RNA sequence: UAUGCAAGUGACGAUGAACAGACAGGGACAUCAGCAUUCUUUGGAUAUGACGAUUUGUUGUUGGGAAUCUCUCUGAUGCAUA
Number, nucleotide and partner (000 for none) at each position: 001u000002a081003u080004g079005c078006a077007a000008g000009u000010g000011a000012c000013g000014a000015u000016g000017a000018a000019c000020a000021g000022a000023c000024a000025g000026g000027g000028a000029c000030a000031u000032c000033a000034g000035c000036a000037u000038u000039c000040u000041u000042u000043g000044g000045a000046u000047a000048u000049g000050a000051c000052g000053a000054u000055u000056u000057g000058u000059u000060g000061u000062u000063g000064g000065g000066a000067a000068u000069c000070u000071c000072u000073c000074u000075g000076a000077u006078g005079c004080a003081u002082a000
RNA: Small nucleolar RNA R44/J54/Z268 family